RNA sequence: AGCAAGGGCACUCUGUGUUAUCAUUUUACUGUGUGAUAAAACAAUUUGUAACCUUGCUAAAGAAAAACAAAAUUUGCUUUACACUUUUGAAAUUACGUACCAUAUUCGAAAGUGAUAUAAUUUUGUAACAAA
Number, nucleotide and partner (000 for none) at each position: 001a000002g057003c056004a055005a054006g053007g052008g000009c000010a049011c048012u000013c000014u043015g042016u041017g000018u039019u038020a037021u036022c035023a034024u000025u033026u000027u000028a000029c000030u000031g000032u000033g025034u023035g022036a021037u020038a019039a018040a000041a016042c015043a014044a000045u000046u000047u000048g011049u010050a000051a000052c007053c006054u005055u004056g003057c002058u000059a000060a000061a000062g000063a000064a000065a000066a000067a000068c125069a124070a123071a122072a121073u120074u000075u119076g118077c000078u000079u000080u000081a000082c114083a113084c000085u111086u110087u109088u108089g107090a106091a105092a000093u000094u000095a000096c000097g000098u000099a000100c000101c000102a000103u000104a000105u091106u090107c089108g088109a087110a086111a085112g000113u083114g082115a000116u000117a000118u076119a075120a073121u072122u071123u070124u069125g068126u000127a000128a000129c000130a000131a000132a000
RNA: Small nucleolar RNA psi18S-841/snoR66